[Rfam]
RNA: Mammalian CPEB3 ribozyme
RNA sequence: AUUACAAUAUAGGGGAUCACAAUAGGAGCAUUCUCGCUGCAAGCCCUGUCAGAUUUUAUCUAAAUCUGCAAUCCUACU
Numbered sequence: 001a002u003u004a005c006a007a008u009a010u011a012g013g014g015g016a017u018c019a020c021a022a023u024a025g026g027a028g029c030a031u032u033c034u035c036g037c038u039g040c041a042a043g044c045c046c047u048g049u050c051a052g053a054u055u056u057u058a059u060c061u062a063a064a065u066c067u068g069c070a071a072u073c074c075u076a077c078u
Base pairs, nucleotide, nucleotide: 013046014045015044017042021078023076024075025074026073027072028040029039030038050068051067052066053065054064055063056062